Annotation:
The family of this 223-nucleotide RNA from Parasynechococcus marenigrum is "Cyano-2 RNA". Rfam classes the family as a small RNA. The sequence is in the family's curated seed alignment. The source organism's lineage runs through Bacteria, Bacillati, Synechococcales, Parasynechococcus and Parasynechococcus marenigrum.
[Rfam]
RNA sequence: AGCAGCACCGAGAGAGCGACUCGGGAGCUGGCAGAAACCAGUCCCUAUGGCCUCAGAAGACUCCUUAGGGACAGUUUUUGCGCCUUCAUAUCGUCUUCCACUAACAAGAAAGAUUCCGUAGUCUGCAGCUUGAAUCGAGAUCAUUCGUCAGGCUUGGAAUGCGGAGUCGAAUCGCUCGGGAAACGUCGGCGCGACCGAUGUCUCUCUCGGCUCCGCGGUCAGU
Numbered sequence: 001a002g003c004a005g006c007a008c009c010g011a012g013a014g015a016g017c018g019a020c021u022c023g024g025g026a027g028c029u030g031g032c033a034g035a036a037a038c039c040a041g042u043c044c045c046u047a048u049g050g051c052c053u054c055a056g057a058a059g060a061c062u063c064c065u066u067a068g069g070g071a072c073a074g075u076u077u078u079u080g081c082g083c084c085u086u087c088a089u090a091u092c093g094u095c096u097u098c099c100a101c102u103a104a105c106a107a108g109a110a111a112g113a114u115u116c117c118g119u120a121g122u123c124u125g126c127a128g129c130u131u132g133a134a135u136c137g138a139g140a141u142c143a144u145u146c147g148u149c150a151g152g153c154u155u156g157g158a159a160u161g162c163g164g165a166g167u168c169g170a171a172u173c174g175c176u177c178g179g180g181a182a183a184c185g186u187c188g189g190c191g192c193g194a195c196c197g198a199u200g201u202c203u204c205u206c207u208c209g210g211c212u213c214c215g216c217g218g219u220c221a222g223u
Stems, first nucleotide, its partner, number of pairs: 003030004008024005031081007041072007049064002161216010178206004183201007